Rfam assigns this 176-nucleotide RNA sequence from Oryza meridionalis to the family "MIR807 microRNA precursor family". For this family Rfam cites "Rice embryogenic calli express a unique set of microRNAs, suggesting regulatory roles of microRNAs in plant post-embryogenic development" (Luo et al., FEBS Lett, 2006). The family has 30 seed sequences and 1,514 matches in Rfam 15.1. Taxonomically the source falls in Oryza (Eukaryota, Embryophyta, Tracheophyta, Poaceae). Rfam links the family to the GO terms miRNA-mediated post-transcriptional gene silencing and RISC complex.
RNA sequence: AACCACACUAUCAAUGAAUAGAUUCACCCGUGAGAUGACGUGGCUAUUUCACCUAGGAUGAGAACAUGGCAUACUAUUAAUUUCAUGAGAUGGUUGAUAUUAGAAUGCCACGUCCUCGUCCUAAGUGGAACAACCACAUCAUAUAAUGGGCGAAUCCAUUCACUGAUAGUGUGGUU
Numbered sequence: 001a002a003c004c005a006c007a008c009u010a011u012c013a014a015u016g017a018a019u020a021g022a023u024u025c026a027c028c029c030g031u032g033a034g035a036u037g038a039c040g041u042g043g044c045u046a047u048u049u050c051a052c053c054u055a056g057g058a059u060g061a062g063a064a065c066a067u068g069g070c071a072u073a074c075u076a077u078u079a080a081u082u083u084c085a086u087g088a089g090a091u092g093g094u095u096g097a098u099a100u101u102a103g104a105a106u107g108c109c110a111c112g113u114c115c116u117c118g119u120c121c122u123a124a125g126u127g128g129a130a131c132a133a134c135c136a137c138a139u140c141a142u143a144u145a146a147u148g149g150g151c152g153a154a155u156c157c158a159u160u161c162a163c164u165g166a167u168a169g170u171g172u173g174g175u176u
Base pairs, nucleotide, nucleotide: 001176002175003174004173005172006171007170009168010167011166012165013164015162017160018159019158021156022155023154024153025152027150028149030147031146033144035142036141037140038139041136042135043134045132047130048129051126052125054123055122057120058119064113065112069108070107071106072105074103075102076101078099079098086097